[Rfam]
RNA sequence: UAUAAUAAGUCCAUCAAUAGAAAUGCGGUGUGGCUACUUGCAGCCAAAACAGCAUUUAUAUUAGAUGGACAAACAGACAUGAGCAUAUAAUAUCGUUCAGCAAAGCUGAACAUAUGGAAUGCGAAUGCCUGUUGCGAUUUCGGGAGUCCGAAGGACGGAGAAAUCGUAAUUAUUAUG
Numbered sequence: 001u002a003u004a005a006u007a008a009g010u011c012c013a014u015c016a017a018u019a020g021a022a023a024u025g026c027g028g029u030g031u032g033g034c035u036a037c038u039u040g041c042a043g044c045c046a047a048a049a050c051a052g053c054a055u056u057u058a059u060a061u062u063a064g065a066u067g068g069a070c071a072a073a074c075a076g077a078c079a080u081g082a083g084c085a086u087a088u089a090a091u092a093u094c095g096u097u098c099a100g101c102a103a104a105g106c107u108g109a110a111c112a113u114a115u116g117g118a119a120u121g122c123g124a125a126u127g128c129c130u131g132u133u134g135c136g137a138u139u140u141c142g143g144g145a146g147u148c149c150g151a152a153g154g155a156c157g158g159a160g161a162a163a164u165c166g167u168a169a170u171u172a173u174u175a176u177g
Stems, first nucleotide, its partner, number of pairs: 001177007010069004016062004021057006028050002031047001032045004073132004078127003083122004090115004095111007135166007146156004
Annotation:
The family of this 177-nucleotide RNA sequence from Firmicutes bacterium CAG:882 is "Clostridiales-1 RNA". It is annotated as a small RNA. A search with the family's covariance model found it, with a score of 108 bits.